Shown here is a 146-nucleotide RNA from Microcebus murinus, a member of the family "U4 spliceosomal RNA". Lineage of the source: Eukaryota > Craniata > Teleostomi > Amniota > Microcebus. Rfam links the family to the GO terms U4 snRNP and spliceosomal tri-snRNP complex assembly. It is annotated as a spliceosomal small nuclear RNA. The family is grouped with related families in Rfam's "U4 clan".

RNA sequence: UUCUUUGUGCACUGUCAGUAUCAUAGCCAAUGAGGUUUAUCUGAGGCAAGAAAACAUCACUGAUAAUUGGAAACCUUUCCCAAUACCCCACAGUGAUGACUUGCAAUAUAGACGGCACUGGCAAUUUUUAACAGUCUCUGUAGAGG
Numbered sequence: 001u002u003c004u005u006u007g008u009g010c011a012c013u014g015u016c017a018g019u020a021u022c023a024u025a026g027c028c029a030a031u032g033a034g035g036u037u038u039a040u041c042u043g044a045g046g047c048a049a050g051a052a053a054a055c056a057u058c059a060c061u062g063a064u065a066a067u068u069g070g071a072a073a074c075c076u077u078u079c080c081c082a083a084u085a086c087c088c089c090a091c092a093g094u095g096a097u098g099a100c101u102u103g104c105a106a107u108a109u110a111g112a113c114g115g116c117a118c119u120g121g122c123a124a125u126u127u128u129u130a131a132c133a134g135u136c137u138c139u140g141u142a143g144a145g146g
Stems, first nucleotide, its partner, number of pairs: 021051002024048001026047003034042002091121001093118003097114002100111002135146004